[Rfam]
RNA sequence: UGGAAACUUCGGUAGGUGAGGUUACCACAGGGAUUUGGAUGAUUCCUAAGAUUGCUGCCGCAAAUUUGUGGAGACACAACGCGCUGGUUAGCAGGAGAUGUCGUAAAGGCAUAACCUAAUGCAAUUCUAUCGCCCUGUGAUACUAAAGCUUGUACGUUGCAGUUCUGG
Numbered sequence: 001u002g003g004a005a006a007c008u009u010c011g012g013u014a015g016g017u018g019a020g021g022u023u024a025c026c027a028c029a030g031g032g033a034u035u036u037g038g039a040u041g042a043u044u045c046c047u048a049a050g051a052u053u054g055c056u057g058c059c060g061c062a063a064a065u066u067u068g069u070g071g072a073g074a075c076a077c078a079a080c081g082c083g084c085u086g087g088u089u090a091g092c093a094g095g096a097g098a099u100g101u102c103g104u105a106a107a108g109g110c111a112u113a114a115c116c117u118a119a120u121g122c123a124a125u126u127c128u129a130u131c132g133c134c135c136u137g138u139g140a141u142a143c144u145a146a147a148g149c150u151u152g153u154a155c156g157u158u159g160c161a162g163u164u165c166u167g168g
Stems, first nucleotide, its partner, number of pairs: 005164004010159001011155001013107001015150003020144003026139007051125005058086001060084002067078004094116002100110003
RNA: M-box riboswitch aptamer (ykoK leader)